The record is a 73-nucleotide RNA from Alligator mississippiensis, which matches "Mammalian CPEB3 ribozyme" in Rfam.
It scores 38 bits against the family's covariance model.
Lineage of the source: Eukaryota > Teleostomi > Euteleostomi > Archelosauria > Alligator.
Rfam links the family to the GO term RNA nuclease activity.
The family's consensus secondary structure is taken from published work.

[Rfam]
RNA sequence: UCUCCGUAACAGCCAUAGCAGAAGUGCUCACAUUAUGGCCCUGUCAGAGUCUAACAAAUCUGUGAACUCUGCU
Numbered sequence: 001u002c003u004c005c006g007u008a009a010c011a012g013c014c015a016u017a018g019c020a021g022a023a024g025u026g027c028u029c030a031c032a033u034u035a036u037g038g039c040c041c042u043g044u045c046a047g048a049g050u051c052u053a054a055c056a057a058a059u060c061u062g063u064g065a066a067c068u069c070u071g072c073u
Stems, first nucleotide, its partner, number of pairs: 012039003017073006024036003045062004050057001